Shown here is a 52-nucleotide RNA sequence from Aminobacter sp. J15, a member of the family "ffh sRNA". A reference for the family is Meyer et al. (2009), "Identification of candidate structured RNAs in the marine organism 'Candidatus Pelagibacter ubique'", BMC Genomics. Lineage of the source: Bacteria > Pseudomonadati > Pseudomonadota > Hyphomicrobiales > Aminobacter.
RNA sequence: GAUCCCGGAGGUCAACACCCGGCAGCGCGAUGCGCCCCCGGGUGCCCACUGG
Numbered sequence: 001g002a003u004c005c006c007g008g009a010g011g012u013c014a015a016c017a018c019c020c021g022g023c024a025g026c027g028c029g030a031u032g033c034g035c036c037c038c039c040g041g042g043u044g045c046c047c048a049c050u051g052g
Stems, first nucleotide, its partner, number of pairs: 016044007025035004